RNA sequence: ACCUGUUGCGGGUGGCAGCUGAGGGUGCCCGCAACGCACGACAGAAACACGUGCCCAUCGGAACAAAUGGGCACUUCAGGGCGUU
Numbered sequence: 001a002c003c004u005g006u007u008g009c010g011g012g013u014g015g016c017a018g019c020u021g022a023g024g025g026u027g028c029c030c031g032c033a034a035c036g037c038a039c040g041a042c043a044g045a046a047a048c049a050c051g052u053g054c055c056c057a058u059c060g061g062a063a064c065a066a067a068u069g070g071g072c073a074c075u076u077c078a079g080g081g082c083g084u085u
Stems, first nucleotide, its partner, number of pairs: 004036011016024001051074008

Rfam assigns this 85-nucleotide sequence from Streptomyces argyrophylli to the family "nrdJ RNA".
By type it is a small RNA.
Taxonomically the source falls in Streptomyces (Bacteria, Bacillati, Actinomycetota, Streptomycetaceae).